[Rfam]
RNA sequence: CGAGACUCCAGGUCGGCUAAAAGCGGCCACGUCCUGUGGCCAACGCCGACACUAGAUCAUCCAGAUCG
Numbered sequence: 001c002g003a004g005a006c007u008c009c010a011g012g013u014c015g016g017c018u019a020a021a022a023g024c025g026g027c028c029a030c031g032u033c034c035u036g037u038g039g040c041c042a043a044c045g046c047c048g049a050c051a052c053u054a055g056a057u058c059a060u061c062c063a064g065a066u067c068g
Stems, first nucleotide, its partner, number of pairs: 012050006026040005055067004
The family of this 68-nucleotide RNA sequence from Piscibacillus halophilus is "Bacillaceae-1 RNA". By type it is a small RNA. The source organism's lineage runs through Bacteria, Bacillota, Bacilli, Bacillaceae and Piscibacillus.